A member of the RNA family "Clostridiales-1 RNA" from Anaerobium acetethylicum, 156 nucleotides long. It is annotated as a small RNA. The source organism's lineage runs through Bacteria, Bacillota, Clostridia, Lachnospirales and Anaerobium. It scores 66 bits against the family's covariance model.

RNA sequence: UGAUACCAGGGUCAUAAGGUCAUGUGUUUCAUGCUUGCAUGAAAAAACAUGACUUUGAGACCCGCAAAACAUGAAAAAUCCGCCCGAAUAGGGCGGAUCUCUCCUGUUUUUAGAAUUGGUGGAACACAAACUGCAUAACAAUCCGGUCAGGUAUCC
Numbered sequence: 001u002g003a004u005a006c007c008a009g010g011g012u013c014a015u016a017a018g019g020u021c022a023u024g025u026g027u028u029u030c031a032u033g034c035u036u037g038c039a040u041g042a043a044a045a046a047a048c049a050u051g052a053c054u055u056u057g058a059g060a061c062c063c064g065c066a067a068a069a070c071a072u073g074a075a076a077a078a079u080c081c082g083c084c085c086g087a088a089u090a091g092g093g094c095g096g097a098u099c100u101c102u103c104c105u106g107u108u109u110u111u112a113g114a115a116u117u118g119g120u121g122g123a124a125c126a127c128a129a130a131c132u133g134c135a136u137a138a139c140a141a142u143c144c145g146g147u148c149a150g151g152u153a154u155c156c
Base pairs, nucleotide, nucleotide: 002155003154004153005152006151007150010062011061012060013059016056017055018054019053020052021051022050023049024048025047027045028044029042030041031040032039033038066110067109068108069107070106071105073103074102079097080096081095082094083093084092085091113144115142116141117140118139125133126132